[Rfam]
RNA sequence: CUGCAUGUGGCAGUGUCUACUCUUCAUACUUUCAGGAGCAGGAAUAUACUCAAAACAUGCUGCCUUAAAAAAGUUCUCAGGGCUGCGUCUUACAGUAGAGCUUGAGCACUAAUAUAUUUCUCCUACAUAA
Numbered sequence: 001c002u003g004c005a006u007g008u009g010g011c012a013g014u015g016u017c018u019a020c021u022c023u024u025c026a027u028a029c030u031u032u033c034a035g036g037a038g039c040a041g042g043a044a045u046a047u048a049c050u051c052a053a054a055a056c057a058u059g060c061u062g063c064c065u066u067a068a069a070a071a072a073g074u075u076c077u078c079a080g081g082g083c084u085g086c087g088u089c090u091u092a093c094a095g096u097a098g099a100g101c102u103u104g105a106g107c108a109c110u111a112a113u114a115u116a117u118u119u120c121u122c123c124u125a126c127a128u129a130a
Stems, first nucleotide, its partner, number of pairs: 003060006016042003020038004072121002082110001086106001087102001089100003

The family of this 130-nucleotide RNA from Rhinolophus ferrumequinum is "Small nucleolar RNA U109". The literature on the family includes a 2005 paper in Nucleic Acids Res by Gu et al., "A novel experimental approach for systematic identification of box H/ACA snoRNAs from eukaryotes". It is annotated as an H/ACA-box small nucleolar RNA. Rfam links the family to the GO terms RNA processing and nucleolus.